[Rfam]
RNA: MIR398 microRNA precursor family
Organism: Ensete ventricosum
RNA sequence: GGAGUUCCAACAGGAGCGACCUGCGACCACAUGCGCGCGCCUCUCUACGACUCUCCGGCGGCUUCUGCCGUUUGAUUGUUUUGGCAGGGUGUGAUGUGUUCUCAGGUCGCCCCUGCAGGAGCUCC
Numbered sequence: 001g002g003a004g005u006u007c008c009a010a011c012a013g014g015a016g017c018g019a020c021c022u023g024c025g026a027c028c029a030c031a032u033g034c035g036c037g038c039g040c041c042u043c044u045c046u047a048c049g050a051c052u053c054u055c056c057g058g059c060g061g062c063u064u065c066u067g068c069c070g071u072u073u074g075a076u077u078g079u080u081u082u083g084g085c086a087g088g089g090u091g092u093g094a095u096g097u098g099u100u101c102u103c104a105g106g107u108c109g110c111c112c113c114u115g116c117a118g119g120a121g122c123u124c125c
Stems, first nucleotide, its partner, number of pairs: 007119002011115004016110004023103001025101002028098005